Ribosomal S15 leader: a 105-nucleotide RNA from Marisediminitalea aggregata. Its Rfam clan is "Ribosomal Protein S15 Leader clan". The match comes from Rfam's covariance-model search (65 bits). Its family is annotated with regulation of translation, ncRNA-mediated in the Gene Ontology. A reference for the family is Benard et al. (1996), "Pseudoknot and translational control in the expression of the S15 ribosomal protein", Biochimie. It is annotated as a cis-regulatory leader. From the family's description: The E. coli Ribosomal S15 gene 5' UTR can form two alternative structures. The organism belongs to Marisediminitalea, within Bacteria. The family's consensus secondary structure is taken from published work.
RNA sequence: UCGCCAGACUGAAUUAGUGAUUGGUCUGGCAUUUACUAGGAGAAAUGUAUGUCACUAACUAAAGAAGAAACAGCAAGCAUUGUUGCUGAAUACGGUGUUAAAGAA
Number, nucleotide and partner (000 for none) at each position: 001u000002c000003g000004c000005c000006a000007g026008a025009c024010u023011g022012a021013a000014u000015u000016a000017g000018u000019g000020a000021u012022u011023g010024g009025u008026c007027u000028g000029g000030c000031a000032u000033u000034u000035a000036c000037u058038a000039g056040g055041a000042g053043a000044a000045a000046u000047g000048u000049a000050u000051g000052u000053c042054a000055c040056u039057a000058a037059c000060u000061a000062a000063a000064g000065a000066a000067g000068a000069a000070a000071c000072a000073g000074c000075a000076a000077g000078c000079a000080u000081u000082g000083u000084u000085g000086c000087u000088g000089a000090a000091u000092a000093c000094g000095g000096u000097g000098u000099u000100a000101a000102a000103g000104a000105a000